[Rfam]
RNA sequence: GACACAAACUUGAAGUAUAGUAGUUUAGUAGGGUCAGCCGAUCCUACUAUUCCACUCUAUUUCGUACUUGAGUCC
Numbered sequence: 001g002a003c004a005c006a007a008a009c010u011u012g013a014a015g016u017a018u019a020g021u022a023g024u025u026u027a028g029u030a031g032g033g034u035c036a037g038c039c040g041a042u043c044c045u046a047c048u049a050u051u052c053c054a055c056u057c058u059a060u061u062u063c064g065u066a067c068u069u070g071a072g073u074c075c
Stems, first nucleotide, its partner, number of pairs: 001074003005070003011064007019056003023052001026049005032043004
This 75-nucleotide RNA sequence from Haemonchus placei belongs to the Rfam family "mir-5928 microRNA precursor family". The match comes from Rfam's covariance-model search (65 bits).